Shown here is a 59-nucleotide sequence from bacterium HR11, a member of the family "Selenocysteine insertion sequence 3".

[Rfam]
RNA sequence: AUCUGACACGGCCCGACGGUGGCCAGUCUGGCCGCCACAUUCGGCCGUGGGGCGAUGAC
Numbered sequence: 001a002u003c004u005g006a007c008a009c010g011g012c013c014c015g016a017c018g019g020u021g022g023c024c025a026g027u028c029u030g031g032c033c034g035c036c037a038c039a040u041u042c043g044g045c046c047g048u049g050g051g052g053c054g055a056u057g058a059c
Base pairs, nucleotide, nucleotide: 007049008048009047010046011045012044013043015042016041018035021033022032023031024030025029
It scores 79 bits against the family's covariance model. Rfam classes the family as a cis-regulatory element.